RNA sequence: GAAGACCACUAGGGGAGCCAUUACUGGCUGAGACAGAGUUGAUCUGGACCCUUUGAACCUGAUCUAGUUCAUACUAGCGUAGGAAAGUGGAGUUCGUGCAAG
Numbered sequence: 001g002a003a004g005a006c007c008a009c010u011a012g013g014g015g016a017g018c019c020a021u022u023a024c025u026g027g028c029u030g031a032g033a034c035a036g037a038g039u040u041g042a043u044c045u046g047g048a049c050c051c052u053u054u055g056a057a058c059c060u061g062a063u064c065u066a067g068u069u070c071a072u073a074c075u076a077g078c079g080u081a082g083g084a085a086a087g088u089g090g091a092g093u094u095c096g097u098g099c100a101a102g
Base pairs, nucleotide, nucleotide: 006090007089008088009087010086011052012051013050014049017028018027019026020025035045036044037043058083059082060081061080064077065076066075067074

Rfam assigns this 102-nucleotide RNA sequence from Bacillus sp. FJAT-18017 to the family "TPP riboswitch aptamer (THI element)". The match comes from Rfam's covariance-model search (83 bits).